[Rfam]
RNA: Purine riboswitch aptamer
RNA sequence: AUAACUUAAACAACAAUUGCCUAUAUAAUGCCGUAAUAUGGACGGCGAGUUUCUACCCAACCCCGUAAAGGUUGGACUAUAAGCGAAUUGAGCCGCUGG
Numbered sequence: 001a002u003a004a005c006u007u008a009a010a011c012a013a014c015a016a017u018u019g020c021c022u023a024u025a026u027a028a029u030g031c032c033g034u035a036a037u038a039u040g041g042a043c044g045g046c047g048a049g050u051u052u053c054u055a056c057c058c059a060a061c062c063c064c065g066u067a068a069a070g071g072u073u074g075g076a077c078u079a080u081a082a083g084c085g086a087a088u089u090g091a092g093c094c095g096c097u098g099g
Base pairs, nucleotide, nucleotide: 018085019084020083022081023080024079025078029047030046031045032044033043034042057075058074059073060072061071062070